The record is a 227-nucleotide part of an RNA from Amniculicola lignicola, which matches "Eukaryotic large subunit ribosomal RNA" in Rfam. Lineage of the source: Eukaryota > saccharomyceta > leotiomyceta > Pleosporomycetidae > Amniculicola lignicola.

RNA sequence: CGCUUACAGCUAGACUUGCCCAUAGUUAUUCAUCUAGGCUCUUACCUAGUACACUCUUCUACAGGCAGGCCAGCAUUAGUCCAGGCAGUCAGAUAAAGGCCUUAGGAAUGUAGCUCCUUUUAGGGAGUGUUAUAGCCCAGGGUACCAUGCGGCCAGCCUAAACUAAGGUCCACGCUUCUGCUAGGAUGCUGGCGUAAUAGCUAUAAGCGGCCUGUCUUAAAACAUAG
Numbered sequence: 001c002g003c004u005u006a007c008a009g010c011u012a013g014a015c016u017u018g019c020c021c022a023u024a025g026u027u028a029u030u031c032a033u034c035u036a037g038g039c040u041c042u043u044a045c046c047u048a049g050u051a052c053a054c055u056c057u058u059c060u061a062c063a064g065g066c067a068g069g070c071c072a073g074c075a076u077u078a079g080u081c082c083a084g085g086c087a088g089u090c091a092g093a094u095a096a097a098g099g100c101c102u103u104a105g106g107a108a109u110g111u112a113g114c115u116c117c118u119u120u121u122a123g124g125g126a127g128u129g130u131u132a133u134a135g136c137c138c139a140g141g142g143u144a145c146c147a148u149g150c151g152g153c154c155a156g157c158c159u160a161a162a163c164u165a166a167g168g169u170c171c172a173c174g175c176u177u178c179u180g181c182u183a184g185g186a187u188g189c190u191g192g193c194g195u196a197a198u199a200g201c202u203a204u205a206a207g208c209g210g211c212c213u214g215u216c217u218u219a220a221a222a223c224a225u226a227g
Base pairs, nucleotide, nucleotide: 001209002208003207004206005205006204008202009201010200011199012198017067018066019065020064023061024060071191072190073189074188075187076186077185212227213226214225215224